[Rfam]
RNA: Burkholderia RNA 14
RNA sequence: GACGGCUCUCGAGAUCAAGCCGCAUGAGGUGGGAUUGACCUAUGAUUAUGCCGCGCGCGUCUCUGCCUUUCGCGAGGUGCAGGUGCGUGCGCGGGUAGGCGGCAUCCUGCUGCGCCGCAAUUUCACCGAAGGGGCCGAGGUCAAGGCCGGCGAUCUCCUGUUCGAGAUCGA
Number, nucleotide and partner (000 for none) at each position: 001g000002a000003c053004g052005g051006c050007u000008c000009u045010c044011g043012a041013g040014a000015u038016c037017a036018a000019g000020c031021c029022g000023c000024a000025u000026g000027a000028g000029g021030u000031g020032g000033g000034a000035u000036u017037g016038a015039c000040c013041u012042a000043u011044g010045a009046u000047u000048a000049u000050g006051c005052c004053g003054c000055g147056c146057g000058c145059g141060u140061c139062u000063c137064u000065g135066c134067c133068u132069u000070u131071c000072g000073c128074g000075a000076g000077g090078u089079g088080c087081a000082g000083g000084u000085g000086c000087g080088u079089g078090c077091g000092c000093g118094g000095g116096u000097a000098g113099g000100c112101g111102g110103c109104a108105u000106c000107c000108u104109g103110c102111u101112g100113c098114g000115c000116c095117g000118c093119a000120a000121u000122u000123u000124c000125a000126c000127c000128g073129a000130a000131g070132g068133g067134g066135c065136c000137g063138a000139g061140g060141u059142c000143a000144a000145g058146g056147c055148c000149g000150g000151c000152g000153a000154u000155c170156u000157c000158c166159u165160g000161u000162u000163c000164g000165a159166g158167a000168u000169c000170g155171a000